[Rfam]
RNA: Glycine riboswitch aptamer
Organism: Salinisphaera japonica
RNA sequence: GCAAAUCGCGUAGGAGAGAGCGGCACGACGAUGUGUCGCCGCCGAAGGCGCAAUUCCCGCCCGGAAACGCUCAGGCUCACGGACUACGCGCCGGCU
Number, nucleotide and partner (000 for none) at each position: 001g000002c000003a000004a000005a000006u000007c090008g089009c088010g087011u086012a085013g084014g000015a000016g000017a000018g000019a000020g039021c038022g037023g036024c035025a034026c033027g000028a000029c000030g000031a000032u000033g026034u025035g024036u023037c022038g021039c020040c000041g076042c075043c074044g072045a071046a000047g000048g070049c069050g068051c000052a000053a000054u064055u063056c000057c000058c000059g000060c000061c000062c000063g055064g054065a000066a000067a000068c050069g049070c048071u045072c044073a000074g043075g042076c041077u000078c000079a000080c000081g000082g000083a000084c013085u012086a011087c010088g009089c008090g007091c000092c000093g000094g000095c000096u000